RNA sequence: CGGUCCGCAGUUCACCGAGUCGCUGCCAGCCCGCGAGGGCCAUGCUGAACCUGCUU
Numbered sequence: 001c002g003g004u005c006c007g008c009a010g011u012u013c014a015c016c017g018a019g020u021c022g023c024u025g026c027c028a029g030c031c032c033g034c035g036a037g038g039g040c041c042a043u044g045c046u047g048a049a050c051c052u053g054c055u056u
Stems, first nucleotide, its partner, number of pairs: 001017004029040004
Rfam assigns this 56-nucleotide sequence from Celeribacter neptunius to the family "COG3860 RNA". Taxonomically the source falls in Celeribacter (Bacteria, Pseudomonadati, Alphaproteobacteria, Roseobacteraceae). A search with the family's covariance model found it, with a score of 53 bits.